[Rfam]
RNA sequence: CCUUGAAAAAGGCGAGUGUUUGAAAUGGAAAGACGCAAAGCUGCGAGUCUGAAAUCCUUCUGAAUAGGGAUAGUCGAGUUGUCAAA
Numbered sequence: 001c002c003u004u005g006a007a008a009a010a011g012g013c014g015a016g017u018g019u020u021u022g023a024a025a026u027g028g029a030a031a032g033a034c035g036c037a038a039a040g041c042u043g044c045g046a047g048u049c050u051g052a053a054a055u056c057c058u059u060c061u062g063a064a065u066a067g068g069g070a071u072a073g074u075c076g077a078g079u080u081g082u083c084a085a086a
Base pairs, nucleotide, nucleotide: 012036013035017031019029020028021027022026039080040079041078042077044076045075046074047071048070049069054065055064057062

The record is an 86-nucleotide sequence from Halalkalibacterium halodurans, which matches "c-di-GMP-I riboswitch aptamer" in Rfam. Rfam's curators write: GEMM was predicted in a large-scale screen for bacterial structured RNA regulatory elements. Its family is annotated with cyclic-di-GMP binding in the Gene Ontology.